[Rfam]
RNA sequence: AUACCUUUCUCAGCCUUUUGGCUAAAAAUAGAUCAAGUGUAGUUUCUGUUCUGAUCAGUUUAAUAUCUGAUCUGUGGUCCUUCGGGCAAACGAAAAGAAAAAAAAGGAUUAAAAAAAGUCCAAGGAAAGGAGUUGACGUUAAGUCAAUUCCUUUGCAGGAGUGCUGGAGGACAGAGAGAAUAUUGCUCGAGACCUU
Numbered sequence: 001a002u003a004c005c006u007u008u009c010u011c012a013g014c015c016u017u018u019u020g021g022c023u024a025a026a027a028a029u030a031g032a033u034c035a036a037g038u039g040u041a042g043u044u045u046c047u048g049u050u051c052u053g054a055u056c057a058g059u060u061u062a063a064u065a066u067c068u069g070a071u072c073u074g075u076g077g078u079c080c081u082u083c084g085g086g087c088a089a090a091c092g093a094a095a096a097g098a099a100a101a102a103a104a105a106g107g108a109u110u111a112a113a114a115a116a117a118g119u120c121c122a123a124g125g126a127a128a129g130g131a132g133u134u135g136a137c138g139u140u141a142a143g144u145c146a147a148u149u150c151c152u153u154u155g156c157a158g159g160a161g162u163g164c165u166g167g168a169g170g171a172c173a174g175a176g177a178g179a180a181u182a183u184u185g186c187u188c189g190a191g192a193c194c195u196u
Base pairs, nucleotide, nucleotide: 008032009031010030012023013022014021015020053072054071055070056069057068058067075089077087078086079085080084120155122153123152124151125150126149133147134146135145136144137143167196168195169194